A member of the RNA family "mir-1421 microRNA precursor family" from Ornithorhynchus anatinus, 72 nucleotides long.
The source organism's lineage runs through Eukaryota, Opisthokonta, Metazoa, Vertebrata and Ornithorhynchus.
Its family is annotated with RISC complex and miRNA-mediated post-transcriptional gene silencing in the Gene Ontology.
The base pairs follow the family's consensus structure, which was predicted with RNAalifold.

[Rfam]
RNA sequence: CAGUUUGAGGUGGACACGUGGUGCAGUAUGAUAGUGGAAUAAGCUGCAUCACGUGUGACCUCCAUACACCGU
Numbered sequence: 001c002a003g004u005u006u007g008a009g010g011u012g013g014a015c016a017c018g019u020g021g022u023g024c025a026g027u028a029u030g031a032u033a034g035u036g037g038a039a040u041a042a043g044c045u046g047c048a049u050c051a052c053g054u055g056u057g058a059c060c061u062c063c064a065u066a067c068a069c070c071g072u
Stems, first nucleotide, its partner, number of pairs: 003069002006066002009063002012060002015057006022048004